The record is a 386-nucleotide RNA sequence from Synechococcus sp. MIT S9508, which matches "Bacterial RNase P class A" in Rfam. The organism belongs to Synechococcus, within Bacteria. Its family is annotated with tRNA processing, ribonuclease P activity and dimeric ribonuclease P complex in the Gene Ontology. The family's RNA type in Rfam is ribozyme. Ribonuclease P (RNase P) is a ubiquitous endoribonuclease, found in archaea, bacteria and eukarya as well as chloroplasts and mitochondria. Its best characterised activity is the generation of mature 5'-ends of tRNAs by cleaving the 5'-leader elements of precursor-tRNAs.
[Rfam]
RNA sequence: GAAAGCAGGAGAGGUGAUCGCAACCGAAUUGCAGCCCAGUGCUGAGAUCCGGUUGAGGAAAGUCCGGGCUCCCCGAUGGCCAGGCUUGCUGGGUAACGCCCAGUGCGGGUGACCGUGAGGAGAGUGCCACAGAAACACACCGCCGAUGGCCGGUUCGCCGGCACAGGCAAGGGUGCAAAGGUGCGGUAAGGGCGCACCAGCAGCAUCGAGAGGUGCUGGCUAGGUAAACCCCGGCCGGGAGCAAGGCCAAGGAACGAUGACUGGCCAUCUGUCCCGUUCCGAUGAGUGAGCCGCUAGAGGCCGCCGGAGACGACGGUCCCAGAUAGAUGAUCACCCCCUUCCCUCGGGAAGGAGAACAGAACCCGGCUUAUGACCUGCUUUCACAC
Dot-bracket structure: (((((((((.(.(((((((.((((((.((.................)).))))))....[[[.[[[[[((((.....[....(((.(((((((.....)))))(((((....)))).)((...(((((...........(((((....(((((....)))))...)))..)).......((((((.......)))))).((((((((....))))))).)..)))..))))))))).))))...(((...((((((..(((.(....]).))).)))))).........)))......(((((.((....)).)))))..........)))))))..........................]]]]]]]].)..)))))))))....